RAGATH-18 RNA: a 61-nucleotide sequence. It is annotated as a small RNA.

RNA sequence: CCUCCGGACUGUCGGACAAGCUCAAGUAGGUACGCCGAAAGAGGACAGGUUGAACGAGGAA
Numbered sequence: 001c002c003u004c005c006g007g008a009c010u011g012u013c014g015g016a017c018a019a020g021c022u023c024a025a026g027u028a029g030g031u032a033c034g035c036c037g038a039a040a041g042a043g044g045a046c047a048g049g050u051u052g053a054a055c056g057a058g059g060a061a
Base pairs, nucleotide, nucleotide: 001059002058003057004056009048010047011046012045013044021043022042023041029036030035

From the family's description: Actinobacteria, Firmicutes, Fusobacteria, Thermotogae (1 example).